RNA sequence: CUUCCUCGAUCUGCUGCGGGCAGAUGAAGUGGAUGUGCGUGUCGACGCCGCCGGCCGUGACGAUCAUGCCUUCGCCGGCGAUGAUCUCGGUGGCGCCGCCGAUGGCCAUCGUCACAUUCGGCUGGAUGUCCGGAUUGCCGGCCUUGCCGAUGGCGGCGAUCAUGCCGCUUUUCAGGCCGAUGUCCGCCUUGACGAUGCCCCAGUGGUCGACGAUCACCGCAUUGGUGAUCACCGUAUCCAUCACAUCGGCGGCCACGCGCUGCGACUGGCCCAUGCCGUCGCGGAU
Numbered sequence: 001c002u003u004c005c006u007c008g009a010u011c012u013g014c015u016g017c018g019g020g021c022a023g024a025u026g027a028a029g030u031g032g033a034u035g036u037g038c039g040u041g042u043c044g045a046c047g048c049c050g051c052c053g054g055c056c057g058u059g060a061c062g063a064u065c066a067u068g069c070c071u072u073c074g075c076c077g078g079c080g081a082u083g084a085u086c087u088c089g090g091u092g093g094c095g096c097c098g099c100c101g102a103u104g105g106c107c108a109u110c111g112u113c114a115c116a117u118u119c120g121g122c123u124g125g126a127u128g129u130c131c132g133g134a135u136u137g138c139c140g141g142c143c144u145u146g147c148c149g150a151u152g153g154c155g156g157c158g159a160u161c162a163u164g165c166c167g168c169u170u171u172u173c174a175g176g177c178c179g180a181u182g183u184c185c186g187c188c189u190u191g192a193c194g195a196u197g198c199c200c201c202a203g204u205g206g207u208c209g210a211c212g213a214u215c216a217c218c219g220c221a222u223u224g225g226u227g228a229u230c231a232c233c234g235u236a237u238c239c240a241u242c243a244c245a246u247c248g249g250c251g252g253c254c255a256c257g258c259g260c261u262g263c264g265a266c267u268g269g270c271c272c273a274u275g276c277c278g279u280c281g282c283g284g285a286u
Stems, first nucleotide, its partner, number of pairs: 002285002005283001007281003012158006018076002022072002030053003034050002037048004057069003077148002081144001083142001085140001090138004095130001097128001099125002102123001104122001106120001108118001164270004170265002173262003177257001186220002190216002200209001223255003230248001234246002
The family of this 286-nucleotide RNA sequence from Rugamonas rivuli is "5' ureB small RNA".
The organism belongs to Rugamonas, within Bacteria.
Gene Ontology term of the family: negative regulation of gene expression.
The family's consensus secondary structure was predicted with mfold.
On this family, see Wen et al., J Bacteriol 2013: "Helicobacter pylori 5'ureB-sRNA, a cis-encoded antisense small RNA, negatively regulates ureAB expression by transcription termination".